[Rfam]
RNA sequence: GACCGGGCCCCUCUGGCAGCCGUGACGCGGCUGCGAUGUCGGACUGAAUAA
Numbered sequence: 001g002a003c004c005g006g007g008c009c010c011c012u013c014u015g016g017c018a019g020c021c022g023u024g025a026c027g028c029g030g031c032u033g034c035g036a037u038g039u040c041g042g043a044c045u046g047a048a049u050a051a
Base pairs, nucleotide, nucleotide: 001044003042004041005040006039016034017033018032019031020030021029022028

The family of this 51-nucleotide RNA from Methylobrevis pamukkalensis is "terC RNA". By type it is a cis-regulatory element. It scores 52 bits against the family's covariance model.